small nucleolar RNA snoR117: an 83-nucleotide RNA from Hibiscus syriacus.
The base pairs follow the family's consensus structure, which was predicted with RNAalifold.
The match comes from Rfam's covariance-model search (65 bits).
Taxonomically the source falls in Hibiscus (Eukaryota, Viridiplantae, Embryophyta, Gunneridae).

RNA sequence: UGCCUGUGAUGUUCAAUCAUUUGUCCGUACCAUCUGAGGUUUCUUUCUCUGAUGAUUCUCUCAAAGUAUUGAUUCUGAGGCAU
Numbered sequence: 001u002g003c004c005u006g007u008g009a010u011g012u013u014c015a016a017u018c019a020u021u022u023g024u025c026c027g028u029a030c031c032a033u034c035u036g037a038g039g040u041u042u043c044u045u046u047c048u049c050u051g052a053u054g055a056u057u058c059u060c061u062c063a064a065a066g067u068a069u070u071g072a073u074u075c076u077g078a079g080g081c082a083u
Stems, first nucleotide, its partner, number of pairs: 001082004